[Rfam]
RNA sequence: UAGAACUUACAGCCCUUUUAGAAUUUACCUAGCAGGCCUUCCGGUCUCUACCAGAGGGACACC
Numbered sequence: 001u002a003g004a005a006c007u008u009a010c011a012g013c014c015c016u017u018u019u020a021g022a023a024u025u026u027a028c029c030u031a032g033c034a035g036g037c038c039u040u041c042c043g044g045u046c047u048c049u050a051c052c053a054g055a056g057g058g059a060c061a062c063c
Stems, first nucleotide, its partner, number of pairs: 035060001037058005043052003
RNA: U7 small nuclear RNA
Organism: Otolemur garnettii